[Rfam]
A member of the RNA family "Bacterial RNase P class A" from Aquitalea sp. FJL05, 363 nucleotides long. By type it is a ribozyme. NCBI's taxonomy places the organism under Bacteria, Betaproteobacteria, Neisseriales, Chromobacteriaceae, Aquitalea. Ribonuclease P (RNase P) is a ubiquitous endoribonuclease, found in archaea, bacteria and eukarya as well as chloroplasts and mitochondria. Its best characterised activity is the generation of mature 5'-ends of tRNAs by cleaving the 5'-leader elements of precursor-tRNAs.

RNA sequence: GAAGUCAGACAGACAGUCGCCGCGCCGCUGCGCAAGCAGGGGCGGGGAGGAAAGUCCGGGCUCCAUAGAGCAUGAUGCCGGCUAACGGCCGGGCGCCGUGAGGCGACGGAAAGUGGAACAGAGAGCUGAACCGCCGAUGGCUGACUUGUCAGCACAGGUAAGGGUGAAAAGGUGCGGUAAGAGCGCACCGCGGACGUGGCGACACGGACGGCAGGCUAAACCCCAUCAGGAGCAAGACCAAAUAGGGGGGCGUUAACGUGGCUCGCGUUGUCCCCGGGUAGGUUGCUUGAGACUGUCGGUAACGGCAGUACUAGAGGAAUGACUGUCCAACGACAGAACCCGGCUUAUCGGCUGACUUCCAAU
Numbered sequence: 001g002a003a004g005u006c007a008g009a010c011a012g013a014c015a016g017u018c019g020c021c022g023c024g025c026c027g028c029u030g031c032g033c034a035a036g037c038a039g040g041g042g043c044g045g046g047g048a049g050g051a052a053a054g055u056c057c058g059g060g061c062u063c064c065a066u067a068g069a070g071c072a073u074g075a076u077g078c079c080g081g082c083u084a085a086c087g088g089c090c091g092g093g094c095g096c097c098g099u100g101a102g103g104c105g106a107c108g109g110a111a112a113g114u115g116g117a118a119c120a121g122a123g124a125g126c127u128g129a130a131c132c133g134c135c136g137a138u139g140g141c142u143g144a145c146u147u148g149u150c151a152g153c154a155c156a157g158g159u160a161a162g163g164g165u166g167a168a169a170a171g172g173u174g175c176g177g178u179a180a181g182a183g184c185g186c187a188c189c190g191c192g193g194a195c196g197u198g199g200c201g202a203c204a205c206g207g208a209c210g211g212c213a214g215g216c217u218a219a220a221c222c223c224c225a226u227c228a229g230g231a232g233c234a235a236g237a238c239c240a241a242a243u244a245g246g247g248g249g250g251c252g253u254u255a256a257c258g259u260g261g262c263u264c265g266c267g268u269u270g271u272c273c274c275c276g277g278g279u280a281g282g283u284u285g286c287u288u289g290a291g292a293c294u295g296u297c298g299g300u301a302a303c304g305g306c307a308g309u310a311c312u313a314g315a316g317g318a319a320u321g322a323c324u325g326u327c328c329a330a331c332g333a334c335a336g337a338a339c340c341c342g343g344c345u346u347a348u349c350g351g352c353u354g355a356c357u358u359c360c361a362a363u
Stems, first nucleotide, its partner, number of pairs: 001359008010350001011348001012327007020047002023044004028039003052346003056343005061232004068264004073228005078092005093107001094105004108223002113221002115217002131163002133159003140153005171189006190212001191210002195206004236284004246275006255269005292309007